[Rfam]
RNA sequence: AACUUUUACGAGGUAUCAGCACUUUUCUUUCAUUAGUGGGGAAGGAAGGAUGAAAAAUCCAAAGCAGCCGUAGACUUUUAAAGUUUCGAUAGACAGGUCUGAGUGCCUGAACGUGCUCUUCCAUUUUUACUUUAACCCUCCAAAGAAGUAUUCUGAUCCAGUUUCACUGCUGAGCAGCCAGGGUAAGUUGAAAUC
Numbered sequence: 001a002a003c004u005u006u007u008a009c010g011a012g013g014u015a016u017c018a019g020c021a022c023u024u025u026u027c028u029u030u031c032a033u034u035a036g037u038g039g040g041g042a043a044g045g046a047a048g049g050a051u052g053a054a055a056a057a058u059c060c061a062a063a064g065c066a067g068c069c070g071u072a073g074a075c076u077u078u079u080a081a082a083g084u085u086u087c088g089a090u091a092g093a094c095a096g097g098u099c100u101g102a103g104u105g106c107c108u109g110a111a112c113g114u115g116c117u118c119u120u121c122c123a124u125u126u127u128u129a130c131u132u133u134a135a136c137c138c139u140c141c142a143a144a145g146a147a148g149u150a151u152u153c154u155g156a157u158c159c160a161g162u163u164u165c166a167c168u169g170c171u172g173a174g175c176a177g178c179c180a181g182g183g184u185a186a187g188u189u190g191a192a193a194u195c
Base pairs, nucleotide, nucleotide: 003019004018007015008014009013029147030146031145033143034142036140038138039137040136041133042132043131044130049125050124051123052122055120056119072100073099074098075097076096077095101116103114104113105112157191158190160189161188162181163180
The record is a 195-nucleotide RNA sequence from Dryobates pubescens, which matches "Connexin-43 internal ribosome entry site (IRES)" in Rfam. On this family, see Schiavi et al., FEBS Lett 1999: "Connexin43 mRNA contains a functional internal ribosome entry site". From the family's description: This family represents the connexin-43 internal ribosome entry site (IRES) which allows cap independent translation during conditions such as heat shock and stress. The base pairs follow the family's consensus structure, which is taken from published work.